Shown here is a 125-nucleotide sequence from Nannospalax galili, a member of the family "Small nucleolar RNA SNORA40". For this family Rfam cites "Mapping to nucleotide resolution of pseudouridine residues in large subunit ribosomal RNAs from representative eukaryotes, prokaryotes, archaebacteria, mitochondria and chloroplasts" (Ofengand and Bakin, J Mol Biol, 1997). By type it is an H/ACA-box small nucleolar RNA. The base pairs follow the family's consensus structure, which was predicted with RNAalifold. The match comes from Rfam's covariance-model search (65 bits). Lineage of the source: Eukaryota > Eutheria > Boreoeutheria > Euarchontoglires > Nannospalax. The snoRNA ACA 40 belongs to the H/ACA family of snoRNAs and guides the pseudouridylation of 28S rRNA subunit at position U4565.
[Rfam]
RNA sequence: AGUGUUUGUGUGUGUUUUGUUGAACUUGUGGACAAAGACUUAAAGACAGGUGCAAAAUUAAACCUUCUUUUGUAAGCCAGGUUUCAUUAUUCAGUAUGGGAAUUUGAUGGUGAAAAAACUGCAUU
Numbered sequence: 001a002g003u004g005u006u007u008g009u010g011u012g013u014g015u016u017u018u019g020u021u022g023a024a025c026u027u028g029u030g031g032a033c034a035a036a037g038a039c040u041u042a043a044a045g046a047c048a049g050g051u052g053c054a055a056a057a058u059u060a061a062a063c064c065u066u067c068u069u070u071u072g073u074a075a076g077c078c079a080g081g082u083u084u085c086a087u088u089a090u091u092c093a094g095u096a097u098g099g100g101a102a103u104u105u106g107a108u109g110g111u112g113a114a115a116a117a118a119c120u121g122c123a124u125u
Base pairs, nucleotide, nucleotide: 002053003052004051005050006049007048008047009046011044014039015038016036017035018034019033020032025030063121066118068116069115070114071113078106079105080104081103082102083101084099085098086097087096